The record is a 137-nucleotide RNA sequence from Vibrio palustris, which matches "Molybdenum/Tungsten riboswitch aptamer (Moco RNA motif)" in Rfam. Gene Ontology terms of the family: regulation of gene expression, molybdenum ion binding and tungstate binding. It scores 92 bits against the family's covariance model. Taxonomically the source falls in Vibrio (Bacteria, Pseudomonadota, Gammaproteobacteria, Vibrionaceae). On this family, see Regulski et al., Mol Microbiol 2008: "in molybdenum cofactor and tungsten cofactor metabolism". The base pairs follow the family's consensus structure, which is taken from published work.
RNA sequence: CAGUUGCCAUAACUCCGAGUUUACUCACCUAAGUCUUCCGGAUAGGGUGUGUAAUCCUGUGGCAAUACCGCCACGCGGGCAUCACUAGAAAUGAUGAUGCCUCCCGUGUUUGGAAAGGUGUUUCAUGGCGCAACAAU
Number, nucleotide and partner (000 for none) at each position: 001c000002a000003g131004u130005u000006g000007c000008c000009a000010u000011a122012a121013c120014u000015c118016c117017g000018a000019g056020u000021u054022u053023a052024c051025u000026c049027a048028c047029c046030u000031a000032a000033g043034u042035c041036u040037u000038c000039c000040g036041g035042a034043u033044a000045g000046g029047g028048u027049g026050u000051g024052u023053a022054a021055u000056c019057c000058u000059g074060u073061g072062g071063c070064a000065a000066u000067a000068c000069c000070g063071c062072c061073a060074c059075g000076c000077g102078g101079g100080c099081a098082u097083c096084a095085c000086u093087a092088g000089a000090a000091a000092u087093g086094a000095u084096g083097a082098u081099g080100c079101c078102u077103c113104c112105c000106g000107u000108g000109u000110u000111u000112g104113g103114a000115a000116a000117g016118g015119u000120g013121u012122u011123u000124c000125a000126u000127g000128g000129c000130g004131c003132a000133a000134c000135a000136a000137u000